Rfam assigns this 102-nucleotide RNA sequence from Hibiscus trionum to the family "MIR2275 microRNA precursor family".
[Rfam]
RNA sequence: GAAUUGUAUGUGAGAAUUGGAGGGAACUAAACCAAUUCCCUUAGAUUAUUAUUAUUUUUAUCAUGUUUGGUUUAAUUUCCUCCAAUAUCUCAUCUCCAAUGC
Numbered sequence: 001g002a003a004u005u006g007u008a009u010g011u012g013a014g015a016a017u018u019g020g021a022g023g024g025a026a027c028u029a030a031a032c033c034a035a036u037u038c039c040c041u042u043a044g045a046u047u048a049u050u051a052u053u054a055u056u057u058u059u060a061u062c063a064u065g066u067u068u069g070g071u072u073u074a075a076u077u078u079c080c081u082c083c084a085a086u087a088u089c090u091c092a093u094c095u096c097c098a099a100u101g102c
Stems, first nucleotide, its partner, number of pairs: 004099003008095001011092004016086006023079004028074003032070004
The source organism's lineage runs through Eukaryota, Streptophyta, Embryophyta, Mesangiospermae and Hibiscus. Rfam 15.1 lists 785 matches to the family in 111 species.